Rfam assigns this 356-nucleotide part of an RNA from Methanocella conradii to the family "Archaeal large subunit ribosomal RNA". Taxonomically the source falls in Methanocella conradii (Archaea, Methanomicrobia, Methanocellales, Methanocella). The match comes from Rfam's covariance-model search (2790 bits).
RNA sequence: ACUAGUAACAGCAUAGCACGGUGAGAAUCCGUGCCGCCGAAAGGGCUAGGUUUCCUCGGCCAUGAUCGUCAGCCGAGGGUUAGUCGGUCCUAAGGCCAACCCUAACCUAGUUGGCCGAAAGGGAGACAGGUUAAUAUUCCUGUACUCUUCCACACACAAACCAACGUUUCCUGCCAGCACUGGCAAGCCCGUCAGCUUGUUCAAACACCAUAGCACGUUGGAGGACCGUAACGGUGAGAAAACGUGUAAAGUGCGAUGACGUAAGCAGUGUCACACAGGGAACCCGUGAAAAGGGAGUGGAAGACCCGUACCGAGAUCCGACACAGGUGCCCCUAGUUAAGAAGACUAAGGCGUGU
Numbered sequence: 001a002c003u004a005g006u007a008a009c010a011g012c013a014u015a016g017c018a019c020g021g022u023g024a025g026a027a028u029c030c031g032u033g034c035c036g037c038c039g040a041a042a043g044g045g046c047u048a049g050g051u052u053u054c055c056u057c058g059g060c061c062a063u064g065a066u067c068g069u070c071a072g073c074c075g076a077g078g079g080u081u082a083g084u085c086g087g088u089c090c091u092a093a094g095g096c097c098a099a100c101c102c103u104a105a106c107c108u109a110g111u112u113g114g115c116c117g118a119a120a121g122g123g124a125g126a127c128a129g130g131u132u133a134a135u136a137u138u139c140c141u142g143u144a145c146u147c148u149u150c151c152a153c154a155c156a157c158a159a160a161c162c163a164a165c166g167u168u169u170c171c172u173g174c175c176a177g178c179a180c181u182g183g184c185a186a187g188c189c190c191g192u193c194a195g196c197u198u199g200u201u202c203a204a205a206c207a208c209c210a211u212a213g214c215a216c217g218u219u220g221g222a223g224g225a226c227c228g229u230a231a232c233g234g235u236g237a238g239a240a241a242a243c244g245u246g247u248a249a250a251g252u253g254c255g256a257u258g259a260c261g262u263a264a265g266c267a268g269u270g271u272c273a274c275a276c277a278g279g280g281a282a283c284c285c286g287u288g289a290a291a292a293g294g295g296a297g298u299g300g301a302a303g304a305c306c307c308g309u310a311c312c313g314a315g316a317u318c319c320g321a322c323a324c325a326g327g328u329g330c331c332c333c334u335a336g337u338u339a340a341g342a343a344g345a346c347u348a349a350g351g352c353g354u355g356u
Stems, first nucleotide, its partner, number of pairs: 016034006035353004043332004049312002054078006063071002085308003089122002094116007126143005146304008161294002166283008177271005182201006206253003215245005225235003260265001318327002334348004